RNA sequence: CUCUUAUCCCGAGUCGGCGGAGGGACAGGCCCUAUGAUGCCCGGCAACCUGCAUGGACGUCCUUGUCUAUGAAAAGGUGCCAAACCUGAAGCAGGGGGAAACCCUGGACGAUAAGAG
Numbered sequence: 001c002u003c004u005u006a007u008c009c010c011g012a013g014u015c016g017g018c019g020g021a022g023g024g025a026c027a028g029g030c031c032c033u034a035u036g037a038u039g040c041c042c043g044g045c046a047a048c049c050u051g052c053a054u055g056g057a058c059g060u061c062c063u064u065g066u067c068u069a070u071g072a073a074a075a076g077g078u079g080c081c082a083a084a085c086c087u088g089a090a091g092c093a094g095g096g097g098g099a100a101a102c103c104c105u106g107g108a109c110g111a112u113a114a115g116a117g
Stems, first nucleotide, its partner, number of pairs: 001117008013042001016041003022032003026091001029086001043081004048077002050073001052071006092106005